[Rfam]
Record summary: A member of the RNA family "antisense RNA of dnaA mRNA" from Citrobacter sp. JGM124, 81 nucleotides long. The organism belongs to Citrobacter, within Bacteria. A search with the family's covariance model found it, with a score of 68 bits.
RNA sequence: UUUAGCAUUAGGUUUACGGGCAAUGAUCCCAUUACCUACCGCAUGUAACAGGUGAGUUUUACCCAAGCCUGUACCACCAUA
Number, nucleotide and partner (000 for none) at each position: 001u000002u000003u000004a000005g042006c041007a000008u000009u038010a037011g036012g035013u034014u000015u000016a032017c000018g030019g000020g029021c000022a000023a000024u000025g000026a000027u000028c000029c020030c018031a000032u016033u000034a013035c012036c011037u010038a009039c000040c000041g006042c005043a000044u000045g000046u000047a000048a000049c000050a000051g078052g077053u076054g075055a000056g074057u073058u000059u000060u000061a072062c071063c000064c000065a000066a000067g000068c000069c000070u000071g062072u061073a057074c056075c054076a053077c052078c051079a000080u000081a000